[Rfam]
The family of this 325-nucleotide RNA sequence from Chitinimonas arctica is "Betaproteobacteria transfer-messenger RNA". A reference for the family is Felden et al. (1997), "Probing the structure of the Escherichia coli 10Sa RNA (tmRNA)", RNA. A search with the family's covariance model found it, with a score of 104 bits. The family's consensus secondary structure is taken from published work. It is annotated as a non-coding RNA gene. Gene Ontology term of the family: RNA catabolic process. About the family: Bacterial tmRNA, also known as 10Sa RNA or SsrA, is named for its dual tRNA and mRNA-like properties. Its role is to liberate the mRNA from a stalled ribosome. To accomplish this part of the tmRNA is used as a reading frame that ends in a translation stop signal. The broken mRNA is replaced in the ribosome by the tmRNA and translation of the tmRNA leads to addition of a proteolysis tag to the incomplete protein enabling recognition by a protease.

RNA sequence: UCAUUCAAUUGCAGUGAAGCCGAAAGGCAACACGGCAAUUGAUGGCUGUAAUCCGGCUCAACCCAAGGUAUUUCGGACGCGGGUUCGAAUCCCGCCAGCUCCACCAUCGACGGGGCUGACUUGGUUUCGACGGGGUAUACGAAGGAAGAGACGCAGCCCGAAAGGCGACGGACGUAAUCCGCGCAAAUCCUUAGAUGGUAACCAACCUUCUAAUCUGCAAGUAAUGCAGCAAUUCGAUGUACCGACUCCGGCUAACGGGGAUCAGUACUUGAAUGUUGCUUAAGGUUAACGCCUAGCUUGCGCGGUGGCCGGCUACCGGGCAACA
Dot-bracket structure: ...........................................(((((.....((.((...(......(((((((...(((((.......)))))(((((((.........)))))))............)))))))......)....)).)))))))((............)).............................................................................................................................((.((((((....)))))).))....